[Rfam]
RNA sequence: AUAGAAGAUAGAGGCGCACUUGUUAUUAGUACUUGAGAAAAGGGGUAAAGCACCCACAAGGAAAGGAACAAUUGCCGAAGCAUACAAACAGCUUUAGGUUUGUAUUGCUGGGGGUACGUAGAAUAUGCGUAUCACUGUCACAAGUAUCUUGUGUUGGGCUAUCAUUUGA
Numbered sequence: 001a002u003a004g005a006a007g008a009u010a011g012a013g014g015c016g017c018a019c020u021u022g023u024u025a026u027u028a029g030u031a032c033u034u035g036a037g038a039a040a041a042g043g044g045g046u047a048a049a050g051c052a053c054c055c056a057c058a059a060g061g062a063a064a065g066g067a068a069c070a071a072u073u074g075c076c077g078a079a080g081c082a083u084a085c086a087a088a089c090a091g092c093u094u095u096a097g098g099u100u101u102g103u104a105u106u107g108c109u110g111g112g113g114g115u116a117c118g119u120a121g122a123a124u125a126u127g128c129g130u131a132u133c134a135c136u137g138u139c140a141c142a143a144g145u146a147u148c149u150u151g152u153g154u155u156g157g158g159c160u161a162u163c164a165u166u167u168g169a
Stems, first nucleotide, its partner, number of pairs: 007163005016075003020071005032060004037055001079109003082105008110136002113133008139153006
This 169-nucleotide RNA sequence from Peptostreptococcus stomatis belongs to the Rfam family "Lysine riboswitch aptamer". Rfam's curators write: Riboswitches are metabolite binding domains within certain messenger RNAs that serve as precision sensors for their corresponding targets. Allosteric rearrangement of mRNA structure is mediated by ligand binding, and this results in modulation of gene expression. This family includes riboswitches that sense lysine in a number of genes involved in lysine metabolism, including lysC.